Rfam assigns this 102-nucleotide RNA from Halalkalibacter suaedae to the family "Purine riboswitch aptamer". The match comes from Rfam's covariance-model search (86 bits). Its family is annotated with purine nucleobase biosynthetic process in the Gene Ontology. Taxonomically the source falls in Halalkalibacter (Bacteria, Bacillota, Bacilli, Bacillaceae).
[Rfam]
RNA sequence: AUAAAUACAUACAAACAAUCUCGUAUAAUCGUGGGGAUAUGGCCUACAAGUUUCUACCGAACUACCUUAAAUGGUUCGACUACGAGUGAUGUUUUGACGUUC
Numbered sequence: 001a002u003a004a005a006u007a008c009a010u011a012c013a014a015a016c017a018a019u020c021u022c023g024u025a026u027a028a029u030c031g032u033g034g035g036g037a038u039a040u041g042g043c044c045u046a047c048a049a050g051u052u053u054c055u056a057c058c059g060a061a062c063u064a065c066c067u068u069a070a071a072u073g074g075u076u077c078g079a080c081u082a083c084g085a086g087u088g089a090u091g092u093u094u095u096g097a098c099g100u101u102c
Stems, first nucleotide, its partner, number of pairs: 020086006029049001031047005058078007